[Rfam]
RNA sequence: CAGUCCGCCACGUGGGACACCCUCACCGGGUCAGGUACCUCGCGGUUACCCUGGCCGCGUGCACCCUUGACACAGAGGGGGUGCAAAGCCGACAGCCGUCGCAUCCCAGGGAGCUCAACCAUG
Numbered sequence: 001c002a003g004u005c006c007g008c009c010a011c012g013u014g015g016g017a018c019a020c021c022c023u024c025a026c027c028g029g030g031u032c033a034g035g036u037a038c039c040u041c042g043c044g045g046u047u048a049c050c051c052u053g054g055c056c057g058c059g060u061g062c063a064c065c066c067u068u069g070a071c072a073c074a075g076a077g078g079g080g081g082u083g084c085a086a087a088g089c090c091g092a093c094a095g096c097c098g099u100c101g102c103a104u105c106c107c108a109g110g111g112a113g114c115u116c117a118a119c120c121a122u123g
Base pairs, nucleotide, nucleotide: 060085061084062083063082065080066079067078068077088102089101091100092099093098
Rfam assigns this 123-nucleotide RNA sequence from Streptomyces subrutilus to the family "Streptomyces-metH RNA".
Rfam classes the family as a small RNA.
The source organism's lineage runs through Bacteria, Bacillati, Kitasatosporales, Streptomycetaceae and Streptomyces.
Pairs were carried over by alignment from the consensus structure, which is taken from published work.